[Rfam]
RNA sequence: GACGAAUCUAUUGCCCGCCGAGUCCGCCGCUUACCGGCUGCGGAGGAGGGCGGUGAAAGCGCAGGCU
Number, nucleotide and partner (000 for none) at each position: 001g000002a000003c000004g000005a000006a000007u000008c000009u000010a000011u056012u055013g054014c000015c053016c052017g051018c050019c049020g000021a000022g000023u044024c043025c042026g041027c040028c000029g038030c037031u036032u000033a000034c000035c000036g031037g030038c029039u000040g027041c026042g025043g024044a023045g000046g000047a000048g000049g019050g018051c017052g016053g015054u013055g012056a011057a000058a000059g000060c000061g000062c000063a000064g000065g000066c000067u000
This 67-nucleotide sequence from Ottowia oryzae belongs to the Rfam family "ilvH RNA". The family's RNA type in Rfam is cis-regulatory element.